Rfam assigns this 126-nucleotide RNA from Microcebus murinus to the family "U4atac minor spliceosomal RNA". A search with the family's covariance model found it, with a score of 76 bits. About the family: U4atac is an essential component of the minor U12-type spliceosome complex which is required for removal of the rarer class of eukaryotic introns (AT-AC, U12-type). Pairs were carried over by alignment from the consensus structure, which is taken from published work. By type it is a spliceosomal small nuclear RNA. The source organism's lineage runs through Eukaryota, Deuterostomia, Gnathostomata, Primates and Microcebus.
RNA sequence: ACUAUUCUUUACAUGGAGUUGCACUACUGUCCAAUGAGCACAUAGUGAGGGCAAUACUGCGAAUGCCUAUACCACAUGCCCACAUCAACUAGAGUUUUGCUUUACUUUGGUGCAAUUUUUACAAAA
Numbered sequence: 001a002c003u004a005u006u007c008u009u010u011a012c013a014u015g016g017a018g019u020u021g022c023a024c025u026a027c028u029g030u031c032c033a034a035u036g037a038g039c040a041c042a043u044a045g046u047g048a049g050g051g052c053a054a055u056a057c058u059g060c061g062a063a064u065g066c067c068u069a070u071a072c073c074a075c076a077u078g079c080c081c082a083c084a085u086c087a088a089c090u091a092g093a094g095u096u097u098u099g100c101u102u103u104a105c106u107u108u109g110g111u112g113c114a115a116u117u118u119u120u121a122c123a124a125a126a
Stems, first nucleotide, its partner, number of pairs: 006018001008016002021060003026055001028053005038046002083112005090104006